[Rfam]
RNA sequence: UUUCAAUGAUGAAAAAUCUAAGACUUGUUUCUCAAAACAUUCGUAGUGGCCGACUAAGAUCUUUCGCCUUCGCUAGGCUUGAGAGAUAGUAUUGCUUUAAUCCUUCCUUGGAUGUCUGAGAUA
Numbered sequence: 001u002u003u004c005a006a007u008g009a010u011g012a013a014a015a016a017u018c019u020a021a022g023a024c025u026u027g028u029u030u031c032u033c034a035a036a037a038c039a040u041u042c043g044u045a046g047u048g049g050c051c052g053a054c055u056a057a058g059a060u061c062u063u064u065c066g067c068c069u070u071c072g073c074u075a076g077g078c079u080u081g082a083g084a085g086a087u088a089g090u091a092u093u094g095c096u097u098u099a100a101u102c103c104u105u106c107c108u109u110g111g112a113u114g115u116c117u118g119a120g121a122u123a
Stems, first nucleotide, its partner, number of pairs: 001123001003121002060086006
RNA: Small nucleolar RNA SNORD14
Organism: Camellia sinensis